RNA sequence: UCUUUCAUUCGAAAGUGCUCUGGGCUGCCAGCACCCUGGUCAUUGAUAGUAUAGGGAGAGGAACCGCUGAAAGCAUUUCCCCAUGUUGGAAAAGCUCAUCCUGUCCUUUCCAAACUCUGGAGCUUUCAUACA
Numbered sequence: 001u002c003u004u005u006c007a008u009u010c011g012a013a014a015g016u017g018c019u020c021u022g023g024g025c026u027g028c029c030a031g032c033a034c035c036c037u038g039g040u041c042a043u044u045g046a047u048a049g050u051a052u053a054g055g056g057a058g059a060g061g062a063a064c065c066g067c068u069g070a071a072a073g074c075a076u077u078u079c080c081c082c083a084u085g086u087u088g089g090a091a092a093a094g095c096u097c098a099u100c101c102u103g104u105c106c107u108u109u110c111c112a113a114a115c116u117c118u119g120g121a122g123c124u125u126u127c128a129u130a131c132a
Stems, first nucleotide, its partner, number of pairs: 001056004007050003014044004019039002022036003066129001068128007085115003089111001090109003094105001
RNA: Small nucleolar RNA SNORA71